[Rfam]
Nucleotides: 102
Stems, first nucleotide, its partner, number of pairs: 001102004014093004023041005044080007059073002061070001
Number, partner (000 for none) and nucleotide at each position: 001102g002101g003100g004099a005000u006000g007000u008000g009000a010000u011000g012000a013000g014093u015092g016091g017090u018000c019000a020000a021000u022000a023041c024040u025039c026038a027037c028000a029000u030000u031000u032000g033000a034000u035000a036000u037027g038026u039025g040024a041023g042000a043000u044080g045079g046078g047077u048076g049075u050074c051000c052000g053000c054000u055000c056000c057000g058000c059073c060072a061070g062000c063000a064000c065000g066000a067000c068000a069000a070061u071000a072060u073059g074050g075049g076048c077047a078046c079045u080044c081000u082000c083000a084000u085000c086000u087000u088000u089000u090017g091016c092015c093014a094000u095000c096000u097000g098000a099004u100003c101002c102001c